RNA sequence: AUACUUACCUGGCACAAAGGUUAACCGUGAACACUAAGGCGGUUCCUUCAGGGUGAGGCCUGUCCAUUGCACUUCGGGCGGGCUGACCUCUGCGAGUAUCCCUAAUGUGGAUACCUCGGGUGCACAAUUUUUGAUAGUCGGGACUGCGUACGCGCGGUCCCGG
Numbered sequence: 001a002u003a004c005u006u007a008c009c010u011g012g013c014a015c016a017a018a019g020g021u022u023a024a025c026c027g028u029g030a031a032c033a034c035u036a037a038g039g040c041g042g043u044u045c046c047u048u049c050a051g052g053g054u055g056a057g058g059c060c061u062g063u064c065c066a067u068u069g070c071a072c073u074u075c076g077g078g079c080g081g082g083c084u085g086a087c088c089u090c091u092g093c094g095a096g097u098a099u100c101c102c103u104a105a106u107g108u109g110g111a112u113a114c115c116u117c118g119g120g121u122g123c124a125c126a127a128u129u130u131u132u133g134a135u136a137g138u139c140g141g142g143a144c145u146g147c148g149u150a151c152g153c154g155c156g157g158u159c160c161c162g163g
Stems, first nucleotide, its partner, number of pairs: 012123004017048004024043005050091004055087001057084003061080005093118003096114003100110002138163006145156004
RNA: U1 spliceosomal RNA
Organism: Thrips palmi